[Rfam]
RNA: Streptomyces-metH RNA
RNA sequence: CGCGUCCGUGUGGUGGACGCCGGUGCCCAUCCAAGCCCACCGCCGGUUAGUCUGACGCCGUGCCCCUCGCCCGGCUCGCCGGGGCAGGGCGCAUAGCCGACAGCCGUCGCAUCCCAGGGAGCCCCUUCAUG
Dot-bracket structure: ............................................................(((..((.((((.........)))).))..)))..((.(((....))))).....................